[Rfam]
RNA sequence: AAUUGAUAAAGGCAAACUUAUUGAAAGAUAAGGGCGCAAAGCCAAGGACCUAAGGUAGUUCAUCUGCUAUGGUAGCCUAGCCGCCGGA
Numbered sequence: 001a002a003u004u005g006a007u008a009a010a011g012g013c014a015a016a017c018u019u020a021u022u023g024a025a026a027g028a029u030a031a032g033g034g035c036g037c038a039a040a041g042c043c044a045a046g047g048a049c050c051u052a053a054g055g056u057a058g059u060u061c062a063u064c065u066g067c068u069a070u071g072g073u074a075g076c077c078u079a080g081c082c083g084c085c086g087g088a
Base pairs, nucleotide, nucleotide: 012037013036017032018031019030020029021028022027041081042080045078046077047076048073049072050071055067056066057065058064
Rfam assigns this 88-nucleotide sequence to the family "c-di-GMP-I riboswitch aptamer".
The family is grouped with related families in Rfam's "c-di-GMP_I riboswitch clan".